[Rfam]
RNA sequence: GUGGGGGCCACACCAACCUGUGGAUGGAGACGGGGGACCCAACCGGUCCACCGAUACGGACCUGAGGCCCAGUGGGCCUCUUGGGGUGAAGCCGACGUAGUACCCGCGGGGAUACCCUGCGGCCAUGAUGCCGGCCGGGCAGCCUCUCCAGCCCGAACCCGACAGCUGACCUCGUGGGCGCGCAUGACGAGAGGAACU
Numbered sequence: 001g002u003g004g005g006g007g008c009c010a011c012a013c014c015a016a017c018c019u020g021u022g023g024a025u026g027g028a029g030a031c032g033g034g035g036g037a038c039c040c041a042a043c044c045g046g047u048c049c050a051c052c053g054a055u056a057c058g059g060a061c062c063u064g065a066g067g068c069c070c071a072g073u074g075g076g077c078c079u080c081u082u083g084g085g086g087u088g089a090a091g092c093c094g095a096c097g098u099a100g101u102a103c104c105c106g107c108g109g110g111g112a113u114a115c116c117c118u119g120c121g122g123c124c125a126u127g128a129u130g131c132c133g134g135c136c137g138g139g140c141a142g143c144c145u146c147u148c149c150a151g152c153c154c155g156a157a158c159c160c161g162a163c164a165g166c167u168g169a170c171c172u173c174g175u176g177g178g179c180g181c182g183c184a185u186g187a188c189g190a191g192a193g194g195a196a197c198u
Stems, first nucleotide, its partner, number of pairs: 011180001013178002018029002030175006040083002084160003092134003137154004